Shown here is a 67-nucleotide RNA from Cnephaeus nilssonii, a member of the family "mir-9256 microRNA precursor family".
RNA sequence: AUAUACAUUGAGUGACCAGAUUAUUAUGAUCUCUGAACGCAUAAUAAUCUGGCCACUCAGUGUAGAC
Numbered sequence: 001a002u003a004u005a006c007a008u009u010g011a012g013u014g015a016c017c018a019g020a021u022u023a024u025u026a027u028g029a030u031c032u033c034u035g036a037a038c039g040c041a042u043a044a045u046a047a048u049c050u051g052g053c054c055a056c057u058c059a060g061u062g063u064a065g066a067c
Base pairs, nucleotide, nucleotide: 004064005063006062007061008060009059010058011057012056013055014054016052017051019049020048021047022046023045024044025043026042027041028040
Dot-bracket structure: ...(((((((((((.((.((((((((((...........)))))))))).)).)))))))))))...

The organism belongs to Cnephaeus, within Eukaryota. The match comes from Rfam's covariance-model search (80 bits). Rfam links the family to the GO terms RISC complex and miRNA-mediated post-transcriptional gene silencing.